[Rfam]
Source information:
This 79-nucleotide sequence from Chrysochloris asiatica belongs to the Rfam family "mir-185 microRNA precursor family". Taxonomically the source falls in Chrysochloris (Eukaryota, Vertebrata, Mammalia, Chrysochloridae).
Nucleotides: 079
Base pairs, nucleotide, nucleotide: 005075007074008073009072011070013068015066016065017064018063020062021061022060024058026056027055028054029053030052031051032050033049034048037046038045
Number, partner (000 for none) and nucleotide at each position: 001000g002000g003000c004000a005075g006000g007074g008073g009072g010000u011070g012000a013068u014000u015066g016065g017064a018063g019000a020062g021061a022060a023000u024058g025000g026056c027055a028054g029053u030052u031051c032050c033049u034048g035000a036000u037046g038045g039000u040000c041000c042000c043000c044000u045038c046037c047000c048034c049033a050032g051031g052030g053029g054028c055027u056026g057000g058024c059000u060022u061021u062020c063018c064017u065016c066015u067000u068013g069000u070011c071000c072009u073008u074007c075005c076000c077000u078000c079000c
The family has 14 seed sequences and 130 matches in Rfam 15.1. A reference for the family is Linsen et al. (2010), "Small RNA expression and strain specificity in the rat", BMC Genomics. Gene Ontology terms of the family: miRNA-mediated post-transcriptional gene silencing and RISC complex.